[Rfam]
The family of this 151-nucleotide RNA sequence from Bacillus licheniformis is "FMN riboswitch aptamer (RFN element)".
RNA sequence: UGUAUCCUUCGGGGCUGGGUGAAAAUCCCGACCGGCGGUAAUAAAGCGAGAGACAGCUUUAGAGCCCGUGACCCGCUGUGCUUCGUGCAAAGCGGUGGAUUCAGUGAAAAGCUGAAGCCGACAGUGAAAGUCUGGAUGGGAGAAGGAUGAA
Dot-bracket structure: ..((((((((......(((.......))).[[((((((.........................[[))))...((...................))....(((((.......)))))]])).(((.....]]))).......))))))))..